[Rfam]
This 218-nucleotide RNA sequence belongs to the Rfam family "IS605-orfB-I RNA". The sequence is in the family's curated seed alignment. By type it is a small RNA.
RNA sequence: ACGUUAUACAGAUAUAUAAAUGCAAGACAAUUUAAUAUCUCCCUUUAACGUGGUGUUUUUAAGAAAUAUAAGUGAUAAGUUUCAUUGUGUGGCUAUUUUUAGUCGAAAUGAGAUGAAUUUAUAUGGAAUAGGUUAACCGUAAGACCUUAUGUUGAAAAACAUUAAAAUUGAUCUAAAAAUAGAAUUUCUUAAAUUUCGUUAUUUUUAGUUACGGUUGG
Numbered sequence: 001a002c003g004u005u006a007u008a009c010a011g012a013u014a015u016a017u018a019a020a021u022g023c024a025a026g027a028c029a030a031u032u033u034a035a036u037a038u039c040u041c042c043c044u045u046u047a048a049c050g051u052g053g054u055g056u057u058u059u060u061a062a063g064a065a066a067u068a069u070a071a072g073u074g075a076u077a078a079g080u081u082u083c084a085u086u087g088u089g090u091g092g093c094u095a096u097u098u099u100u101a102g103u104c105g106a107a108a109u110g111a112g113a114u115g116a117a118u119u120u121a122u123a124u125g126g127a128a129u130a131g132g133u134u135a136a137c138c139g140u141a142a143g144a145c146c147u148u149a150u151g152u153u154g155a156a157a158a159a160c161a162u163u164a165a166a167a168u169u170g171a172u173c174u175a176a177a178a179a180u181a182g183a184a185u186u187u188c189u190u191a192a193a194u195u196u197c198g199u200u201a202u203u204u205u206u207a208g209u210u211a212c213g214g215u216u217g218g
Base pairs, nucleotide, nucleotide: 001051002050003049004048005047006046008044010040011039012038013037014036015035017034018033019032020031021030022028066124067123068122069121070120071119072118073117080113081112082111083110084109085108086107091104092103094101130147131146132145133144134143136215137214138213139212140211141210142168149162150161151160152159153158173208174207175206176205177204178203179202180201181200